RNA sequence: UCCUCACCACCGACCUGUGUCUUACUGUCCCGUCCGCCUUUCGGGGUGUGUUCGGUCGAUAGUCUGGCAGUUCGUCCGAUCUAUGGAGCCAUCAACUUCCCAUGAUGUCAAUCUUCCGGUCGACAGGUCGCAGAGCGAGUCGAUGCGUUUCUUUCCGCCUGAGUUCGCCGCAAGGUUUGAGCUCGGUGGAGGGUCGUGUCAGGGCGACUGAUUCCUGAUCUCUUUGCUGAUGGCCGUCGGCUUGUGAAGUUAGGGACAAACCCAGUCCAGCCUACAUAC
Numbered sequence: 001u002c003c004u005c006a007c008c009a010c011c012g013a014c015c016u017g018u019g020u021c022u023u024a025c026u027g028u029c030c031c032g033u034c035c036g037c038c039u040u041u042c043g044g045g046g047u048g049u050g051u052u053c054g055g056u057c058g059a060u061a062g063u064c065u066g067g068c069a070g071u072u073c074g075u076c077c078g079a080u081c082u083a084u085g086g087a088g089c090c091a092u093c094a095a096c097u098u099c100c101c102a103u104g105a106u107g108u109c110a111a112u113c114u115u116c117c118g119g120u121c122g123a124c125a126g127g128u129c130g131c132a133g134a135g136c137g138a139g140u141c142g143a144u145g146c147g148u149u150u151c152u153u154u155c156c157g158c159c160u161g162a163g164u165u166c167g168c169c170g171c172a173a174g175g176u177u178u179g180a181g182c183u184c185g186g187u188g189g190a191g192g193g194u195c196g197u198g199u200c201a202g203g204g205c206g207a208c209u210g211a212u213u214c215c216u217g218a219u220c221u222c223u224u225u226g227c228u229g230a231u232g233g234c235c236g237u238c239g240g241c242u243u244g245u246g247a248a249g250u251u252a253g254g255g256a257c258a259a260a261c262c263c264a265g266u267c268c269a270g271c272c273u274a275c276a277u278a279c
Stems, first nucleotide, its partner, number of pairs: 011130008019068003024063001026061004030055003034050001035048005077122005084110003088106001090104001142200006156188004161184006168175002203272003206267005219256005226250003232242004
RNA: A. fumigatus sRNA Afu_309